[Rfam]
RNA sequence: CUGGGGUGAGGUAGUAAGUUGUAUUGUUGUGGGGUUGGGAUUGUAGACCCCAAUUAGAAGAUAACUAUACAACUUACUACUUUCCCUGG
Numbered sequence: 001c002u003g004g005g006g007u008g009a010g011g012u013a014g015u016a017a018g019u020u021g022u023a024u025u026g027u028u029g030u031g032g033g034g035u036u037g038g039g040a041u042u043g044u045a046g047a048c049c050c051c052a053a054u055u056a057g058a059a060g061a062u063a064a065c066u067a068u069a070c071a072a073c074u075u076a077c078u079a080c081u082u083u084c085c086c087u088g089g
Stems, first nucleotide, its partner, number of pairs: 001089006008083017026065002032051003054059001
let-7 microRNA precursor family: an 89-nucleotide sequence from Tupaia belangeri. Its family is annotated with RISC complex and miRNA-mediated post-transcriptional gene silencing in the Gene Ontology. Clan: let-7 microRNA precursor clan. The base pairs follow the family's consensus structure, which was predicted with RNAalifold. Rfam 15.1 lists 8,694 matches to the family in 797 species. Rfam's curators write: This family represents the microRNAs (miRNA) let-7 and mir-98. let-7 was identified from a study of developmental timing in C. elegans, and was later shown to be part of a much larger class of non-coding RNAs termed miRNAs.